[Rfam]
RNA sequence: UGGAGGACUAAGAAGGUAAGUUAGUUAAACUUUGUGCUGUAUCUUACUGGUUAUAGCCUCCAAAAUUGUAAUAGGGCAAUGGCAACUCAUGUGCUCCUCCUGACACCAGGGAAAGCAGUACUGCAUUUGCACAUAAGGC
Numbered sequence: 001u002g003g004a005g006g007a008c009u010a011a012g013a014a015g016g017u018a019a020g021u022u023a024g025u026u027a028a029a030c031u032u033u034g035u036g037c038u039g040u041a042u043c044u045u046a047c048u049g050g051u052u053a054u055a056g057c058c059u060c061c062a063a064a065a066u067u068g069u070a071a072u073a074g075g076g077c078a079a080u081g082g083c084a085a086c087u088c089a090u091g092u093g094c095u096c097c098u099c100c101u102g103a104c105a106c107c108a109g110g111g112a113a114a115g116c117a118g119u120a121c122u123g124c125a126u127u128u129g130c131a132c133a134u135a136a137g138g139c
Stems, first nucleotide, its partner, number of pairs: 002061005015048004019042001022039004082130002090123002097118002100115002104111001

The family of this 139-nucleotide sequence from Pitta sordida is "Small nucleolar RNA SNORA47". The family has 20 seed sequences and 733 matches in Rfam 15.1. Lineage of the source: Eukaryota > Metazoa > Sauria > Pittidae > Pitta. It is annotated as an H/ACA-box small nucleolar RNA. The base pairs follow the family's consensus structure, which was predicted with WAR.